[Rfam]
RNA sequence: GUGUCCGUGAGGAAUCGUGCGGAGGACCUGAAGGCAAAACUCGGAAUAGGCGACAUAAACCACGUUGGCUGGCAGAAUCGGAUUACCUUGCAAAGGAUGGGGAUGUCCAAUACCACUAUGGUUCUGCAAGUUAGGAGGACUAGGUUCGAGGGAAAGCCCGAUGA
Numbered sequence: 001g002u003g004u005c006c007g008u009g010a011g012g013a014a015u016c017g018u019g020c021g022g023a024g025g026a027c028c029u030g031a032a033g034g035c036a037a038a039a040c041u042c043g044g045a046a047u048a049g050g051c052g053a054c055a056u057a058a059a060c061c062a063c064g065u066u067g068g069c070u071g072g073c074a075g076a077a078u079c080g081g082a083u084u085a086c087c088u089u090g091c092a093a094a095g096g097a098u099g100g101g102g103a104u105g106u107c108c109a110a111u112a113c114c115a116c117u118a119u120g121g122u123u124c125u126g127c128a129a130g131u132u133a134g135g136a137g138g139a140c141u142a143g144g145u146u147c148g149a150g151g152g153a154a155a156g157c158c159c160g161a162u163g164a
Stems, first nucleotide, its partner, number of pairs: 001016001004013003029164001031162001034157002040150005047142003060138002063135001068131003072127007080108004086101003
This 164-nucleotide sequence from Bacillus sp. DNRA2 belongs to the Rfam family "Group II catalytic intron D1-D4-3". The pairing is the family consensus, mapped onto this sequence. A search with the family's covariance model found it, with a score of 59 bits.